[Rfam]
Rfam assigns this 144-nucleotide RNA from Gossypium barbadense to the family "MIR7502 microRNA precursor family". The family's consensus secondary structure was predicted with RNAalifold. Gene Ontology terms of the family: RISC complex and miRNA-mediated post-transcriptional gene silencing. It scores 72 bits against the family's covariance model. NCBI's taxonomy places the organism under Eukaryota, Streptophytina, Pentapetalae, Malvoideae, Gossypium.
RNA sequence: UGUUAAAAUUUCCAUCAAUUUUUAUGGUUAAAAGUUGAUAUCUAUACGUAAGAAUAAAGUACACAAGACACAUCAAGUGUAUCUAUCUGGUUAUUCUAUCAGCCAUACCAAUGUUUAAUAGUAGAAAUGAAUGAAAUUUUAAUA
Numbered sequence: 001u002g003u004u005a006a007a008a009u010u011u012c013c014a015u016c017a018a019u020u021u022u023u024a025u026g027g028u029u030a031a032a033a034g035u036u037g038a039u040a041u042c043u044a045u046a047c048g049u050a051a052g053a054a055u056a057a058a059g060u061a062c063a064c065a066a067g068a069c070a071c072a073u074c075a076a077g078u079g080u081a082u083c084u085a086u087c088u089g090g091u092u093a094u095u096c097u098a099u100c101a102g103c104c105a106u107a108c109c110a111a112u113g114u115u116u117a118a119u120a121g122u123a124g125a126a127a128u129g130a131a132u133g134a135a136a137u138u139u140u141a142a143u144a
Stems, first nucleotide, its partner, number of pairs: 002143010013133003018128008028118005